[Rfam]
RNA sequence: UGGUGAGAUGAUGACAAUUAUCUUUCAGGACUGACCUGAAAUGAAGAGAAUACUCAUUGCUGAUCACUU
Numbered sequence: 001u002g003g004u005g006a007g008a009u010g011a012u013g014a015c016a017a018u019u020a021u022c023u024u025u026c027a028g029g030a031c032u033g034a035c036c037u038g039a040a041a042u043g044a045a046g047a048g049a050a051u052a053c054u055c056a057u058u059g060c061u062g063a064u065c066a067c068u069u
Base pairs, nucleotide, nucleotide: 002068003067004066005065006064